[Rfam]
RNA: Selenocysteine insertion sequence 1
RNA sequence: CUUGCAUUUGUGAGGACAGGAGCAUAAACUAUGACCUAGGGGCUCCUGUCAGAUAUUUUGCAAU
Numbered sequence: 001c002u003u004g005c006a007u008u009u010g011u012g013a014g015g016a017c018a019g020g021a022g023c024a025u026a027a028a029c030u031a032u033g034a035c036c037u038a039g040g041g042g043c044u045c046c047u048g049u050c051a052g053a054u055a056u057u058u059u060g061c062a063a064u
Base pairs, nucleotide, nucleotide: 002063003062004061005060015050016049017048018047019046020045021044022043023042029039030038031037